[Rfam]
RNA sequence: AGCUUUAAGCAGUGAUAGUAUCAUACCCGAGGUUUAUCCAAGGCGCAGUUAUUGCUAAUUGAAAAUUUUUCCCAAAUACCCCGCCGUGACAACUUGCAAUAUAGUUGGCACUGGCAAUUUUUGAGUUUCUACAGAAA
Numbered sequence: 001a002g003c004u005u006u007a008a009g010c011a012g013u014g015a016u017a018g019u020a021u022c023a024u025a026c027c028c029g030a031g032g033u034u035u036a037u038c039c040a041a042g043g044c045g046c047a048g049u050u051a052u053u054g055c056u057a058a059u060u061g062a063a064a065a066u067u068u069u070u071c072c073c074a075a076a077u078a079c080c081c082c083g084c085c086g087u088g089a090c091a092a093c094u095u096g097c098a099a100u101a102u103a104g105u106u107g108g109c110a111c112u113g114g115c116a117a118u119u120u121u122u123g124a125g126u127u128u129c130u131a132c133a134g135a136a137a
Base pairs, nucleotide, nucleotide: 020049021048024045027043028042031039032038083115084114085113086111087110088109090107091106092105093104094103126137127136128135129134
Annotation:
U4 spliceosomal RNA: a 137-nucleotide sequence from Rhinopithecus roxellana. Pairs were carried over by alignment from the consensus structure, which is taken from published work. A search with the family's covariance model found it, with a score of 76 bits. From the family's description: U4 small nuclear RNA (U4 snRNA) is a component of the major U2-dependent spliceosome.